The family of this 75-nucleotide RNA from Trichormus variabilis is "Cyano-1 RNA". Lineage of the source: Bacteria > Bacillati > Cyanophyceae > Trichormus > Trichormus variabilis.
RNA sequence: CCUUGUGUGAGGAGUAAGUUGAAACGAAAAACGCUUGGGGUGGAAACACGGCAACACUCCCAGGCGUUUUUUAUU
Numbered sequence: 001c002c003u004u005g006u007g008u009g010a011g012g013a014g015u016a017a018g019u020u021g022a023a024a025c026g027a028a029a030a031a032c033g034c035u036u037g038g039g040g041u042g043g044a045a046a047c048a049c050g051g052c053a054a055c056a057c058u059c060c061c062a063g064g065c066g067u068u069u070u071u072u073a074u075u
Stems, first nucleotide, its partner, number of pairs: 028070005035063005040057003

Source information:
Pairs were carried over by alignment from the consensus structure, which is taken from published work.